[Rfam]
RNA sequence: GUUGAUGUAGCUUAACCCAAAGCAAGGCACUGAAAAUGCCUAGAUGAGUCUCCCAACUCCAUAAACA
Numbered sequence: 001g002u003u004g005a006u007g008u009a010g011c012u013u014a015a016c017c018c019a020a021a022g023c024a025a026g027g028c029a030c031u032g033a034a035a036a037u038g039c040c041u042a043g044a045u046g047a048g049u050c051u052c053c054c055a056a057c058u059c060c061a062u063a064a065a066c067a
Stems, first nucleotide, its partner, number of pairs: 001066003005062003010023004025041005046059004
A member of the RNA family "tRNA", 67 nucleotides long. Rfam's curators put it in the seed alignment. The family's RNA type in Rfam is transfer RNA.